[Rfam]
RNA sequence: UGAUGCCCCUCACCCAUCAGUGAAGAUCCCGGGUGGGCGAGGGAACGGAAGGGAUC
Numbered sequence: 001u002g003a004u005g006c007c008c009c010u011c012a013c014c015c016a017u018c019a020g021u022g023a024a025g026a027u028c029c030c031g032g033g034u035g036g037g038c039g040a041g042g043g044a045a046c047g048g049a050a051g052g053g054a055u056c
Base pairs, nucleotide, nucleotide: 007043008042009041010040011039013037014036015035016034017033018032025056026055027054028053029052030051
A member of the RNA family "Antizyme RNA frameshifting stimulation element", 56 nucleotides long. Gene Ontology term of the family: translational frameshifting. For this family Rfam cites "Identification of a new antizyme mRNA +1 frameshifting stimulatory pseudoknot in a subset of diverse invertebrates and its apparent absence in intermediate species" (Ivanov et al., J Mol Biol, 2004). Rfam classes the family as a frameshift element. About the family: This family represents a structural element which is found in antizyme mRNA and is known to promote frameshifting. Antizyme genes have have two partially overlapping open reading frames, the second, which encodes the functional protein requires +1 translational frameshifting. This frameshift is stimulated by a pseudoknot present 3' of the frameshift site in the antizyme mRNA. The frameshifting efficiency is dependent on the level of polyamines in the cell, when the polyamine concentration is high frameshifting is more likely to occur which leads to an increase in the quantity of functional antizyme produced. The functional antizyme acts to reduce ornithine decarboxylase (ODC) activity which leads to a drop in polyamines present in the cell. Rfam 15.1 lists 1,595 matches to the family in 640 species.